[Rfam]
RNA: SAM riboswitch aptamer (S box leader)
RNA sequence: CACUUAUCCAGAGAGGCGGAGGGGACUGGCCCUAUGAAGCCCAGCAACCGGUUGAUAAACACGGUGCUCCUUCCAGCAAAGCAUUCAUUGCUUUGAAAGAUGAGAA
Numbered sequence: 001c002a003c004u005u006a007u008c009c010a011g012a013g014a015g016g017c018g019g020a021g022g023g024g025a026c027u028g029g030c031c032c033u034a035u036g037a038a039g040c041c042c043a044g045c046a047a048c049c050g051g052u053u054g055a056u057a058a059a060c061a062c063g064g065u066g067c068u069c070c071u072u073c074c075a076g077c078a079a080a081g082c083a084u085u086c087a088u089u090g091c092u093u094u095g096a097a098a099g100a101u102g103a104g105a106a
Stems, first nucleotide, its partner, number of pairs: 003104006013042001015041003021032003026076004043068004048064002050060001052058002072098001077095006